[Rfam]
RNA sequence: UUGUUGACGAUUUGUAAGUUGCUUUGGAUAAAAGCAUCUGCUAAAUGAUUAAAU
Numbered sequence: 001u002u003g004u005u006g007a008c009g010a011u012u013u014g015u016a017a018g019u020u021g022c023u024u025u026g027g028a029u030a031a032a033a034g035c036a037u038c039u040g041c042u043a044a045a046u047g048a049u050u051a052a053a054u
Base pairs, nucleotide, nucleotide: 013043014041015040016039020036021035022034023033024032025031
The record is a 54-nucleotide RNA from Carassius auratus, which matches "UnaL2 LINE 3' element" in Rfam. By type it is a cis-regulatory element.